Shown here is a 112-nucleotide RNA from Phrynocephalus forsythii, a member of the family "Small nucleolar RNA SNORD67". The pairing is the family consensus, mapped onto this sequence. It scores 95 bits against the family's covariance model. On this family, see Huttenhofer et al., EMBO J 2001: "RNomics: an experimental approach that identifies 201 candidates for novel, small, non-messenger RNAs in mouse". snoRNA HBII-166 belongs to the C/D family of snoRNAs.
RNA sequence: UGCGAGGGUGAUGAGUUGCACAUUUGGUGGCACUUAGUGUCAGGUGAUGCAGGUGCCAUCCAGAACCUCCCUGAUGACAAAGCCCAGGUGCACAGGGGCCAUCUGACUCGCU
Number, nucleotide and partner (000 for none) at each position: 001u000002g000003c000004g111005a000006g109007g108008g107009u000010g000011a000012u000013g000014a000015g000016u000017u000018g000019c000020a000021c000022a000023u064024u063025u062026g061027g059028u058029g057030g056031c000032a054033c053034u052035u000036a000037g050038u049039g048040u047041c046042a000043g000044g000045u000046g041047a040048u039049g038050c037051a000052g034053g033054u032055g000056c030057c029058a028059u027060c000061c026062a025063g024064a023065a000066c000067c000068u000069c000070c000071c000072u000073g000074a000075u000076g000077a000078c000079a000080a000081a000082g000083c000084c000085c000086a000087g000088g000089u000090g000091c000092a000093c000094a000095g000096g000097g000098g000099c000100c000101a000102u000103c000104u000105g000106a000107c008108u007109c006110g000111c004112u000